[Rfam]
RNA sequence: GUAACUACAUAGCAGGUGGGCGGUUGACCAUCUUCCCUAUAGAAGGGAGGUGGUAGAAUGACAACAUAUGAAGCUUUAAGCCUAGUAGCUCAAUUUUGUUUAACAUUAUUAGCUGCAUUUACACUUAUUGUAACUAUUGUUGUCUUUCUAAACAAAAAGAAAUAACCGUCCCCAUUACCAGUGGAAAAAGACGGUUACUUCUUUGUAAAAACAUAAAAUACACGUUGGUUGGCCGCUCUUUGUGCGGUCUGUAGUUACGCUUACCGAGUGGUUGCAACCACUCGG
Numbered sequence: 001g002u003a004a005c006u007a008c009a010u011a012g013c014a015g016g017u018g019g020g021c022g023g024u025u026g027a028c029c030a031u032c033u034u035c036c037c038u039a040u041a042g043a044a045g046g047g048a049g050g051u052g053g054u055a056g057a058a059u060g061a062c063a064a065c066a067u068a069u070g071a072a073g074c075u076u077u078a079a080g081c082c083u084a085g086u087a088g089c090u091c092a093a094u095u096u097u098g099u100u101u102a103a104c105a106u107u108a109u110u111a112g113c114u115g116c117a118u119u120u121a122c123a124c125u126u127a128u129u130g131u132a133a134c135u136a137u138u139g140u141u142g143u144c145u146u147u148c149u150a151a152a153c154a155a156a157a158a159g160a161a162a163u164a165a166c167c168g169u170c171c172c173c174a175u176u177a178c179c180a181g182u183g184g185a186a187a188a189a190g191a192c193g194g195u196u197a198c199u200u201c202u203u204u205g206u207a208a209a210a211a212c213a214u215a216a217a218a219u220a221c222a223c224g225u226u227g228g229u230u231g232g233c234c235g236c237u238c239u240u241u242g243u244g245c246g247g248u249c250u251g252u253a254g255u256u257a258c259g260c261u262u263a264c265c266g267a268g269u270g271g272u273u274g275c276a277a278c279c280a281c282u283c284g285g
Base pairs, nucleotide, nucleotide: 001258002257003256004255005254007252008251009250011248013231015176016175017174018173019172020171022167023166024165025164028053029052030051032050033049034048035047036046060144061143062142063141064140065139066138073089074088075087188203189202190201233247234246235245236244264285265284266283267282268281269280270279271278272277
This 285-nucleotide sequence from Terrihalobacillus insolitus belongs to the Rfam family "BsrG". The family's RNA type in Rfam is small RNA. Gene Ontology terms of the family: toxin activity and autolysis. It scores 64 bits against the family's covariance model. Rfam describes the family as follows. bsrE, bsrG and bsrH pair through intermolecular interactions with antisense sRNAs. They form type I toxin/antitoxin system that includes an mRNA encoding for a short, toxic peptide (bsrE, bsrG and bsrH) and an antitoxin that is comprised of an antisense RNA. bsrG encodes a 39-amino-acid toxin, and the 180 nucleotide antisense sRNA called SR4 acts as the antitoxin (they overlap by 123 nucleotides). SR4 interaction with the 3'UTR of bsrG RNA promotes bsrG degradation and inhibits its translation. BsrG interferes with cell envelope biosynthesis, causes membrane invaginations and delocalisation of the cell wall synthesis and initiates autolysis. bsrE RNA encodes 30 amino-acid toxin peptide. Its antitoxin gene, SR5 overlaps by 112 nucleotides at the 3' end of bsrE. SR5 also overlaps bsrG from nucleotide 163 to 52 (Rfam overlap check). The antitoxin SR5 promotes bsrE degradation but unlike SR4 it does not directly inhibits toxin mRNA translation. Rfam 15.1 lists 614 matches to the family in 343 species. NCBI's taxonomy places the organism under Bacteria, Bacillati, Bacilli, Bacillaceae, Terrihalobacillus.